This 140-nucleotide RNA from Neotoma lepida belongs to the Rfam family "Small nucleolar RNA SNORA29".
From the family's description: ACA29 is a member of the H/ACA class of snoRNA that guide the sites of modification of uridines to pseudouridines.
The organism belongs to Neotoma, within Eukaryota.
Clan: SNORA20 clan.
The literature on the family includes a 2001 paper in EMBO J by Huttenhofer et al., "RNomics: an experimental approach that identifies 201 candidates for novel, small, non-messenger RNAs in mouse".
Pairs were carried over by alignment from the consensus structure, which was predicted with PFOLD.
Rfam links the family to the GO terms RNA processing and nucleolus.
RNA sequence: UGUCCCAUUUGACUACCACAUUUUCUCUUGAUAAUAGAUUUUAGUGGCUAUGCUUAUGGGAUAGAUUAAAGUUGCCAUGAUCUGAAGAGAGAGGGCUUUCCAAUGUCCUCCCUCUACAUGAAAUGGCUGAACAGGGCUGG
Numbered sequence: 001u002g003u004c005c006c007a008u009u010u011g012a013c014u015a016c017c018a019c020a021u022u023u024u025c026u027c028u029u030g031a032u033a034a035u036a037g038a039u040u041u042u043a044g045u046g047g048c049u050a051u052g053c054u055u056a057u058g059g060g061a062u063a064g065a066u067u068a069a070a071g072u073u074g075c076c077a078u079g080a081u082c083u084g085a086a087g088a089g090a091g092a093g094g095g096c097u098u099u100c101c102a103a104u105g106u107c108c109u110c111c112c113u114c115u116a117c118a119u120g121a122a123a124u125g126g127c128u129g130a131a132c133a134g135g136g137c138u139g140g
Stems, first nucleotide, its partner, number of pairs: 004060004016047004074127004092115004